[Rfam]
RNA sequence: GGUUGCAAUUUGAAGACCAAAGCAGAAGCACUCAUGGUGUGGCCCUGUCAGAUUCCAACAACUCUGCAAAUUCUUCU
Numbered sequence: 001g002g003u004u005g006c007a008a009u010u011u012g013a014a015g016a017c018c019a020a021a022g023c024a025g026a027a028g029c030a031c032u033c034a035u036g037g038u039g040u041g042g043c044c045c046u047g048u049c050a051g052a053u054u055c056c057a058a059c060a061a062c063u064c065u066g067c068a069a070a071u072u073c074u075u076c077u
Stems, first nucleotide, its partner, number of pairs: 015044001017042002021077002024074004028040003049066004054061001
Mammalian CPEB3 ribozyme: a 77-nucleotide sequence from Alligator sinensis. NCBI's taxonomy places the organism under Eukaryota, Eumetazoa, Chordata, Sauropsida, Alligator. For this family Rfam cites "Autocatalytic RNA cleavage in the human beta-globin pre-mRNA promotes transcription termination" (Teixeira et al., Nature, 2004). The family's consensus secondary structure is taken from published work. Rfam links the family to the GO term RNA nuclease activity.